[Rfam]
RNA sequence: AUCAAAAGCAUCAUCGAGUGCAGCGUUGAUGAGCUCCUAUUACCGUAUUUCGCUGGCUGUAUCAAAAGUUCUGUCUCCUGCGCAGCGACUGUGAGGAUUUCGCCAGCGCUGCAUUCGAUAAUGUCUUUG
Numbered sequence: 001a002u003c004a005a006a007a008g009c010a011u012c013a014u015c016g017a018g019u020g021c022a023g024c025g026u027u028g029a030u031g032a033g034c035u036c037c038u039a040u041u042a043c044c045g046u047a048u049u050u051c052g053c054u055g056g057c058u059g060u061a062u063c064a065a066a067a068g069u070u071c072u073g074u075c076u077c078c079u080g081c082g083c084a085g086c087g088a089c090u091g092u093g094a095g096g097a098u099u100u101c102g103c104c105a106g107c108g109c110u111g112c113a114u115u116c117g118a119u120a121a122u123g124u125c126u127u128u129g
Stems, first nucleotide, its partner, number of pairs: 006126001008124004013119016030102003
The family of this 129-nucleotide sequence from Elaeis guineensis is "MIR397 microRNA precursor family". The base pairs follow the family's consensus structure, which was predicted with WAR. On this family, see Mica et al., BMC Genomics 2009: "High throughput approaches reveal splicing of primary microRNA transcripts and tissue specific expression of mature microRNAs in Vitis vinifera".